[Rfam]
RNA sequence: GAUUUUGAACAAUCUACUAAAUAACCAAGUGAAGAUAGGGUGACACCUUGCUUGGAUUGUAUACAUAAUUCCCGUUACGCUUCCCGUGAGAUAUUGUGGGAAGAUAAGUAAUUCUCUUUUGAGUGAUCGAAAGAGAUCAUGAAGUGUAAGAAGAUUGAGGGUGUAUGUAGUAUAGAGGUUGUGCGUAAUUAGAUCAUUAUCAGACGGUGGCAGUGACAAUAGACGCUUCCAGUGGAAGAAUAAUCUAGCAAGGCCUUAUGUAGCAGUAAGAACCAAACUAGAAAAGCUAUAAUAAACUGUUUUGCACUUGAGGUUGAGACAUCAGCCAAUAACACCAAAGAUAAGUACAAGUAGCCCAAAUUGUGCAGAGAAUUUACAAGAUAUAUUGUGCUAAAAUAUUAAUCUGAAUGUCGGGUGAAAGUUGGACGUAACCAGUCGUGCCUAGCCAUUAAAUUGCUACGGAAGUUAUAGGGUCGCUCCUUAUGGCUCAGACCGUGGUAGGCUAUCGGUCAAUAAAUUGCGUACAAUCGAAGUAGAGCGAAGGCUCAUUUAAUAGAUUGUUUAAAG
Numbered sequence: 001g002a003u004u005u006u007g008a009a010c011a012a013u014c015u016a017c018u019a020a021a022u023a024a025c026c027a028a029g030u031g032a033a034g035a036u037a038g039g040g041u042g043a044c045a046c047c048u049u050g051c052u053u054g055g056a057u058u059g060u061a062u063a064c065a066u067a068a069u070u071c072c073c074g075u076u077a078c079g080c081u082u083c084c085c086g087u088g089a090g091a092u093a094u095u096g097u098g099g100g101a102a103g104a105u106a107a108g109u110a111a112u113u114c115u116c117u118u119u120u121g122a123g124u125g126a127u128c129g130a131a132a133g134a135g136a137u138c139a140u141g142a143a144g145u146g147u148a149a150g151a152a153g154a155u156u157g158a159g160g161g162u163g164u165a166u167g168u169a170g171u172a173u174a175g176a177g178g179u180u181g182u183g184c185g186u187a188a189u190u191a192g193a194u195c196a197u198u199a200u201c202a203g204a205c206g207g208u209g210g211c212a213g214u215g216a217c218a219a220u221a222g223a224c225g226c227u228u229c230c231a232g233u234g235g236a237a238g239a240a241u242a243a244u245c246u247a248g249c250a251a252g253g254c255c256u257u258a259u260g261u262a263g264c265a266g267u268a269a270g271a272a273c274c275a276a277a278c279u280a281g282a283a284a285a286g287c288u289a290u291a292a293u294a295a296a297c298u299g300u301u302u303u304g305c306a307c308u309u310g311a312g313g314u315u316g317a318g319a320c321a322u323c324a325g326c327c328a329a330u331a332a333c334a335c336c337a338a339a340g341a342u343a344a345g346u347a348c349a350a351g352u353a354g355c356c357c358a359a360a361u362u363g364u365g366c367a368g369a370g371a372a373u374u375u376a377c378a379a380g381a382u383a384u385a386u387u388g389u390g391c392u393a394a395a396a397u398a399u400u401a402a403u404c405u406g407a408a409u410g411u412c413g414g415g416u417g418a419a420a421g422u423u424g425g426a427c428g429u430a431a432c433c434a435g436u437c438g439u440g441c442c443u444a445g446c447c448a449u450u451a452a453a454u455u456g457c458u459a460c461g462g463a464a465g466u467u468a469u470a471g472g473g474u475c476g477c478u479c480c481u482u483a484u485g486g487c488u489c490a491g492a493c494c495g496u497g498g499u500a501g502g503c504u505a506u507c508g509g510u511c512a513a514u515a516a517a518u519u520g521c522g523u524a525c526a527a528u529c530g531a532a533g534u535a536g537a538g539c540g541a542a543g544g545c546u547c548a549u550u551u552a553a554u555a556g557a558u559u560g561u562u563u564a565a566a567g
Stems, first nucleotide, its partner, number of pairs: 008563002012559001015556001018553001020551002025055005037048003057170006075111004081102009113136010138146003178529001180527001188519001190517001195509001197344004206336004210300005226238004244282005252274002255270003261289004303367005312327005348421001354416004359411001403492004425441001443505003455502001458498001462494001465488001467485007536547004
Dot-bracket structure: .......((..(..(..(.((...(((((.......(((......)))..))))).((((((............((((..(((((((((....))))))))).....)))).((((((((((....)))))))))).(((...)))..................)))))).......(.(.......(.(....(.((((.....(((((((((...........((((.....)))).....(((((...((.(((...[[[[...)))..))...)))))...]]]]......)))))..[[[[[....(((((......))))).....))))....))))...(.....((((.(...]]]]]...................................[[[[....).))))....)...(...............).(((.........(..(...(..(.(((((((.....)))))))..)]]]].)...)...))))...).......).).......).)......((((....))))..)).)..)..)..))....